The family of this 296-nucleotide RNA sequence from Fusarium solani is "Fungal signal recognition particle RNA".

RNA sequence: GACUGUAAUGGUCCAACGGCGAAGACGUUCAAACACGCUCAUCUUCCCAUCCCCAUUCCACUACUUUCGGGUAGUGGCCCUCCGCCGCGCCCCGUCCGAACGCCGCGGUGGCCGCCCACUCGUGCAGGAAACUCACGAUGCUGGUAACCCCUUGGCGGUCCUGAGCGCUGGAGAUGACCCUUGAGGGAGGCUUCACUCUGCAGAGAUCUCUCCCCCGUCGCGUGGCGGGUGGGAAUACGCUUGUGCGGAGGGAUUUGGGUUGGUUGAGGAUGAGAUGGGAUAGUCGACGCUUUCUU
Numbered sequence: 001g002a003c004u005g006u007a008a009u010g011g012u013c014c015a016a017c018g019g020c021g022a023a024g025a026c027g028u029u030c031a032a033a034c035a036c037g038c039u040c041a042u043c044u045u046c047c048c049a050u051c052c053c054c055a056u057u058c059c060a061c062u063a064c065u066u067u068c069g070g071g072u073a074g075u076g077g078c079c080c081u082c083c084g085c086c087g088c089g090c091c092c093c094g095u096c097c098g099a100a101c102g103c104c105g106c107g108g109u110g111g112c113c114g115c116c117c118a119c120u121c122g123u124g125c126a127g128g129a130a131a132c133u134c135a136c137g138a139u140g141c142u143g144g145u146a147a148c149c150c151c152u153u154g155g156c157g158g159u160c161c162u163g164a165g166c167g168c169u170g171g172a173g174a175u176g177a178c179c180c181u182u183g184a185g186g187g188a189g190g191c192u193u194c195a196c197u198c199u200g201c202a203g204a205g206a207u208c209u210c211u212c213c214c215c216c217g218u219c220g221c222g223u224g225g226c227g228g229g230u231g232g233g234a235a236u237a238c239g240c241u242u243g244u245g246c247g248g249a250g251g252g253a254u255u256u257g258g259g260u261u262g263g264u265u266g267a268g269g270a271u272g273a274g275a276u277g278g279g280a281u282a283g284u285c286g287a288c289g290c291u292u293u294c295u296u
Base pairs, nucleotide, nucleotide: 001013002012003011016293018291019290020289021288024285025284026283029280030279034277035276036274038272042270043269044268045267046266050262059076060075061074062073063072064071065070080250081249082248084246085245087240088239089238091233092232093231094230095229096228097227098226100223101222102221103220105218106217107216108215110149111148114145115144116143117140118139120138121137122136123135124134126133127132161165170213171212172211173210174209180205181204182203187198188197189196
Taxonomically the source falls in Fusarium solani species complex (Eukaryota, saccharomyceta, Hypocreales, Nectriaceae). Its Rfam clan is "SRP clan". Gene Ontology terms of the family: signal recognition particle, plasma membrane targeting, signal recognition particle, endoplasmic reticulum targeting and SRP-dependent cotranslational protein targeting to membrane, signal sequence recognition.